Shown here is a 125-nucleotide RNA sequence from Mus spicilegus, a member of the family "Small Cajal body specific RNA 4". Pairs were carried over by alignment from the consensus structure, which was predicted with RNAfold. Rfam describes the family as follows. scaRNAs are a specific class of small nuclear RNAs which localise to the Cajal bodies and guide the modification of RNA polymerase II transcribed spliceosomal RNAs U1, U2, U4, U5 and U12. ACA26 belongs to the H/ACA box class of guide RNAs as it has the predicted hairpin-hinge-hairpin-tail structure, conserved H/ACA-box motifs and is found associated with GAR1. Clan: SCARNA4 clan. Taxonomically the source falls in Mus (Eukaryota, Deuterostomia, Euteleostomi, Euarchontoglires).
RNA sequence: ACUGGAGGAUCAAGUAGGCUGAGUCUGAUGAAGCAAGACUUUGCCGAUAGACUCCUAGACAAAGGGGUGAAGAGAGCAGCCCUUCCUGGAGAAAACCACAGGGCUCACUGUACUACCCAACAUUU
Numbered sequence: 001a002c003u004g005g006a007g008g009a010u011c012a013a014g015u016a017g018g019c020u021g022a023g024u025c026u027g028a029u030g031a032a033g034c035a036a037g038a039c040u041u042u043g044c045c046g047a048u049a050g051a052c053u054c055c056u057a058g059a060c061a062a063a064g065g066g067g068u069g070a071a072g073a074g075a076g077c078a079g080c081c082c083u084u085c086c087u088g089g090a091g092a093a094a095a096c097c098a099c100a101g102g103g104c105u106c107a108c109u110g111u112a113c114u115a116c117c118c119a120a121c122a123u124u125u
Stems, first nucleotide, its partner, number of pairs: 002058002007055003017045003021041006065118004075109002078105006087098003